[Rfam]
About this RNA
This 162-nucleotide RNA sequence belongs to the Rfam family "FuFi-1 RNA". The sequence is in the family's curated seed alignment. The family's RNA type in Rfam is small RNA.

RNA sequence: CCCCCUUGCGAUGGGGUGAAUGGCAGAACGCAAACUGCCUAAGAAGUGGGAGCGCGUAAAGAAGCGCAGGUCCGGCUGCGCCCGCGAAGUACUGCGGUGCAGCGGCCAAUGGUACAAAAAUUGCGGCAAAGGCGUCGGGACCGGUACUCCCGGCGCUUUUGU
Numbered sequence: 001c002c003c004c005c006u007u008g009c010g011a012u013g014g015g016g017u018g019a020a021u022g023g024c025a026g027a028a029c030g031c032a033a034a035c036u037g038c039c040u041a042a043g044a045a046g047u048g049g050g051a052g053c054g055c056g057u058a059a060a061g062a063a064g065c066g067c068a069g070g071u072c073c074g075g076c077u078g079c080g081c082c083c084g085c086g087a088a089g090u091a092c093u094g095c096g097g098u099g100c101a102g103c104g105g106c107c108a109a110u111g112g113u114a115c116a117a118a119a120a121u122u123g124c125g126g127c128a129a130a131g132g133c134g135u136c137g138g139g140a141c142c143g144g145u146a147c148u149c150c151c152g153g154c155g156c157u158u159u160u161g162u
Base pairs, nucleotide, nucleotide: 001050002049003048005046006045007044022039023038024037025036026035029125030124031123032122033121052106053105055104056103057102064081065080066079067078068077069076070147071146072144073143074142075141082097083096084095085094086093130158131157132156133155134154135153136152137151138150139149140148
Dot-bracket structure: (((.(((..............(((((..[[[[[.)))))....))).))).((.(((......(((((({{{{{{))))))(((((......)))))....)))))..............]]]]]....(((((((((((}}}}.}})))))))))))....